Plant small nucleolar RNA U3: a 215-nucleotide sequence from Cuscuta australis. Rfam describes the family as follows. Small nucleolar RNAs (snoRNAs) are involved in the processing and modification of rRNA in the nucleolus. There are two main classes of snoRNAs: the box C/D class, and the box H/ACA class. U3 snoRNA is a member of the box C/D class. Indeed, the box C/D element is a subset of the six short sequence elements found in all U3 snoRNAs, namely boxes A, A', B, C, C', and D. The U3 snoRNA secondary structure is characterised by a small 5' domain (with boxes A and A'), and a larger 3' domain (with boxes B, C, C', and D), the two domains being linked by a single-stranded hinge. The source organism's lineage runs through Eukaryota, Streptophyta, Euphyllophyta, Magnoliopsida and Cuscuta sect. Cleistogrammica. By type it is a C/D-box small nucleolar RNA. It scores 105 bits against the family's covariance model. A reference for the family is Marz and Stadler (2010), "Comparative analysis of eukaryotic U3 snoRNA", RNA Biol.
RNA sequence: GUGACCUUACUUAGACAGGAUCUCUUCUAUAGGGUCCCACCUCUAAACCCUUACUACUAAGGAGAAAGUAAACCGUGCCUGGUUGAUGAAAUUAUUAUAGCUGAGGGGCUCGAGCGUGAAUAGCUGCUAAUGAAGUCUGAACUUUGGGUUUGGCAGCGAAUGAUCGUUCUCAAUCCUAGACGGGUUGGGAUGGCUCCUCGGCCUUCUGACAGGUU
Number, nucleotide and partner (000 for none) at each position: 001g038002u000003g035004a000005c033006c032007u031008u000009a000010c000011u000012u000013a000014g026015a025016c000017a023018g022019g000020a000021u000022c018023u017024c000025u015026u014027c000028u000029a000030u000031a007032g006033g005034g000035u003036c000037c000038c001039a000040c000041c000042u000043c068044u067045a000046a000047a000048c000049c062050c061051u060052u059053a058054c000055u000056a000057c000058u053059a052060a051061g050062g049063a000064g000065a000066a000067a044068g043069u000070a000071a000072a000073c000074c000075g000076u000077g214078c213079c212080u211081g210082g000083u000084u000085g000086a000087u000088g000089a000090a000091a000092u000093u000094a000095u000096u000097a000098u000099a000100g202101c201102u200103g199104a198105g197106g196107g195108g194109c193110u192111c000112g000113a168114g167115c166116g165117u000118g000119a000120a000121u000122a000123g157124c156125u155126g154127c153128u152129a151130a150131u146132g145133a144134a143135g142136u141137c000138u000139g000140a000141a136142c135143u134144u133145u132146g131147g000148g000149u000150u130151u129152g128153g127154c126155a125156g124157c123158g000159a000160a000161u000162g000163a000164u000165c116166g115167u114168u113169c000170u188171c187172a186173a185174u184175c183176c182177u000178a000179g000180a000181c000182g176183g175184g174185u173186u172187g171188g170189g000190a000191u000192g110193g109194c108195u107196c106197c105198u104199c103200g102201g101202c100203c000204u000205u000206c000207u000208g000209a000210c081211a080212g079213g078214u077215u000